[Rfam]
RNA: DUF3800-XI RNA
Organism: Lachnospiraceae bacterium MD308
RNA sequence: UGGGCUGUUCGAAAGAUCUGGGUUCAACCUAAUCGGCGGGGAGACUCCCC
Numbered sequence: 001u002g003g004g005c006u007g008u009u010c011g012a013a014a015g016a017u018c019u020g021g022g023u024u025c026a027a028c029c030u031a032a033u034c035g036g037c038g039g040g041g042a043g044a045c046u047c048c049c050c
Stems, first nucleotide, its partner, number of pairs: 001026006007018001009016002